[Rfam]
RNA sequence: GGUUGCAACAUCCCCGCGAGCUGGGUUCCGGCAUCGAAAAUGAGCCGAAACAGCGAGUUCGCUGCAACC
Numbered sequence: 001g002g003u004u005g006c007a008a009c010a011u012c013c014c015c016g017c018g019a020g021c022u023g024g025g026u027u028c029c030g031g032c033a034u035c036g037a038a039a040a041u042g043a044g045c046c047g048a049a050a051c052a053g054c055g056a057g058u059u060c061g062c063u064g065c066a067a068c069c
Base pairs, nucleotide, nucleotide: 001069002068003067004066005065006064007063013055014053016062017061018060019059020058021057022056023054025051026050027049029047030046031045032044
Dot-bracket structure: (((((((.....[[.((((((((.(((.((((...........)))).))).])]))))))))))))))
Rfam assigns this 69-nucleotide RNA to the family "nadA riboswitch". For this family Rfam cites "Structure and ligand binding of the ADP-binding domain of the NAD(+) riboswitch" (Huang et al., RNA, 2020). Rfam's curators put it in the seed alignment.